[Rfam]
RNA sequence: UUAUUCCUGCCCGAUACGCGGACUGCGCACAUAUAACCCUACACUCGAUUGAAAGGGAGCUCUGUCUCCGCUUGUGGAUUGCAGACCUCCCGACACGGCUUUGACCGUUGUUGGAGGAAGGGAGCGUGAAUCAAGCGGGGGGGCACCCACCUGCUUUUAUGUAGCAGGUUAUUGAGUUGCGCGAUACGGUCGGGCGGGAAUUCU
Dot-bracket structure: ..(((((((((((((.((.................(.((...............(((.(((((..(..((((((......((...(((((......................)))))......))......))))))).))))).)))..................)).)................)))))))))))))))...
The family of this 204-nucleotide RNA sequence from Clostridium sp. CAG:1013 is "6S / SsrS RNA". A reference for the family is Elkina et al. (2017), "6S RNA in Rhodobacter sphaeroides: 6S RNA and pRNA transcript levels peak in late exponential phase and gene deletion causes a high salt stress phenotype", RNA Biol. Lineage of the source: Bacteria > Bacillati > Clostridia > Clostridiaceae > Clostridium.